[Rfam]
RNA: Purine riboswitch aptamer
RNA sequence: CAAUUAAAUAUAUGAUUUACUUAUUUAUGCUGAGGAUUGGCUUAGCGUCUCUACAAGACACCGUAAUGUCUAACAAUAAGUAAGCUAAUAAAUAGC
Numbered sequence: 001c002a003a004u005u006a007a008a009u010a011u012a013u014g015a016u017u018u019a020c021u022u023a024u025u026u027a028u029g030c031u032g033a034g035g036a037u038u039g040g041c042u043u044a045g046c047g048u049c050u051c052u053a054c055a056a057g058a059c060a061c062c063g064u065a066a067u068g069u070c071u072a073a074c075a076a077u078a079a080g081u082a083a084g085c086u087a088a089u090a091a092a093u094a095g096c
Stems, first nucleotide, its partner, number of pairs: 018082008029046006056071005